[Rfam]
RNA sequence: CCCUGCAUUUGUAAGUGAUAAGGGGGAACCCAUGCCCUGGUCAUUGGUAGUGCAGGCAGAGGAAAUGUGGAAAGAAUGGUCCUGUGUUUGGAAGGUCCACAGCCAUGCCUUCCAGUGCUGGGGGCUUUCCCAUA
Numbered sequence: 001c002c003c004u005g006c007a008u009u010u011g012u013a014a015g016u017g018a019u020a021a022g023g024g025g026g027a028a029c030c031c032a033u034g035c036c037c038u039g040g041u042c043a044u045u046g047g048u049a050g051u052g053c054a055g056g057c058a059g060a061g062g063a064a065a066u067g068u069g070g071a072a073a074g075a076a077u078g079g080u081c082c083u084g085u086g087u088u089u090g091g092a093a094g095g096u097c098c099a100c101a102g103c104c105a106u107g108c109c110u111u112c113c114a115g116u117g118c119u120g121g122g123g124g125c126u127u128u129c130c131c132a133u134a
Stems, first nucleotide, its partner, number of pairs: 002056008014045006021038001023037003067131001069130006088115008
Annotation:
The record is a 134-nucleotide RNA sequence from Cricetulus griseus, which matches "Small nucleolar RNA SNORA71" in Rfam. Gene Ontology terms of the family: nucleolus and RNA processing. By type it is an H/ACA-box small nucleolar RNA. It scores 89 bits against the family's covariance model. On this family, see Ganot et al., Genes Dev 1997: "The family of box ACA small nucleolar RNAs is defined by an evolutionarily conserved secondary structure and ubiquitous sequence elements essential for RNA accumulation". The members of this family belong to the H/ACA class of snoRNAs which bind a number of proteins (including dyskerin, Gar1p and Nop10p) to form snoRNP complexes. This class of snoRNAs are thought to guide the sites of modification of uridines to pseudouridines by forming direct base pairing interactions with substrate RNAs. This family includes U71 (SNORA71), ACA39 (SNORA39) and ACA60 (SNORA60). Pairs were carried over by alignment from the consensus structure, which was predicted with PFOLD.